[Rfam]
RNA sequence: AGUGGGACGGCCAUAUUUGGUUGGUGUAGUACAGAGAAACCAGCCUUGUUUACACGGCCGUCCCACU
Numbered sequence: 001a002g003u004g005g006g007a008c009g010g011c012c013a014u015a016u017u018u019g020g021u022u023g024g025u026g027u028a029g030u031a032c033a034g035a036g037a038a039a040c041c042a043g044c045c046u047u048g049u050u051u052a053c054a055c056g057g058c059c060g061u062c063c064c065a066c067u
Base pairs, nucleotide, nucleotide: 001067002066003065004064005063006062007061009059010058011057012056015049016048019045020044021043022042023041024040025039026032027031
This 67-nucleotide RNA from Labrus bergylta belongs to the Rfam family "MAT2A 3'UTR stem loop F".
The family's RNA type in Rfam is cis-regulatory element.